A member of the RNA family "U4 spliceosomal RNA" from Caenorhabditis elegans, 139 nucleotides long. Its Rfam clan is "U4 clan". It is annotated as a spliceosomal small nuclear RNA. The family's consensus secondary structure is taken from published work. Lineage of the source: Eukaryota > Opisthokonta > Bilateria > Chromadorea > Caenorhabditis.
[Rfam]
RNA sequence: AGCUUUGCGCUGGGGCGAUAACGUGACCAAUGAGGCUUUGCCGAGGUGCGUUUAUUGCUGGUUGAAAACUUUUCCCAAUUGCCCGCGAUGUCCCCUGAAACAUGGGUGGCAUACGCAAUUUUUGAAAGCCUCUAGGAGG
Numbered sequence: 001a002g003c004u005u006u007g008c009g010c011u012g013g014g015g016c017g018a019u020a021a022c023g024u025g026a027c028c029a030a031u032g033a034g035g036c037u038u039u040g041c042c043g044a045g046g047u048g049c050g051u052u053u054a055u056u057g058c059u060g061g062u063u064g065a066a067a068a069c070u071u072u073u074c075c076c077a078a079u080u081g082c083c084c085g086c087g088a089u090g091u092c093c094c095c096u097g098a099a100a101c102a103u104g105g106g107u108g109g110c111a112u113a114c115g116c117a118a119u120u121u122u123u124g125a126a127a128g129c130c131u132c133u134a135g136g137a138g139g
Stems, first nucleotide, its partner, number of pairs: 020052005026047003034042003085116003088112005094106004129139004